The record is a 58-nucleotide sequence from Clostridium sulfidigenes, which matches "Fluoride riboswitch aptamer (crcB RNA motif)" in Rfam. Gene Ontology terms of the family: response to fluoride and positive regulation of gene expression.
Nucleotides: 058
Base pairs, nucleotide, nucleotide: 010025011024012023013022016049017048018047019046020045021044032039033038
Number, partner (000 for none) and nucleotide at each position: 001000a002000u003000a004000a005000u006000u007000u008000a009000u010025g011024g012023u013022g014000a015000u016049g017048g018047a019046g020045u021044u022013c023012a024011c025010c026000u027000u028000a029000a030000u031000c032039g033038c034000a035000a036000u037000u038033g039032c040000u041000a042000a043000u044021g045020a046019c047018u048017c049016c050000u051000a052000c053000a054000g055000a056000c057000a058000a

Record summary: The base pairs follow the family's consensus structure, which is taken from published work.